[Rfam]
This 87-nucleotide sequence from Streptomyces apricus belongs to the Rfam family "ZMP/ZTP riboswitch aptamer (pfl RNA motif)".
The family's consensus secondary structure is taken from published work.
The match comes from Rfam's covariance-model search (56 bits).
The organism belongs to Streptomyces, within Bacteria.
RNA sequence: UCCACGGGCCGUGACUGGCGCGCUGGGAUGGGAUCGACCAUCGGGAAGCGGCCCGGGAACCGUGUGCCGUGCGCCUGGGCCGAACCG
Numbered sequence: 001u002c003c004a005c006g007g008g009c010c011g012u013g014a015c016u017g018g019c020g021c022g023c024u025g026g027g028a029u030g031g032g033a034u035c036g037a038c039c040a041u042c043g044g045g046a047a048g049c050g051g052c053c054c055g056g057g058a059a060c061c062g063u064g065u066g067c068c069g070u071g072c073g074c075c076u077g078g079g080c081c082g083a084a085c086c087g
Stems, first nucleotide, its partner, number of pairs: 003057001005055008015045002017075005028041004066080003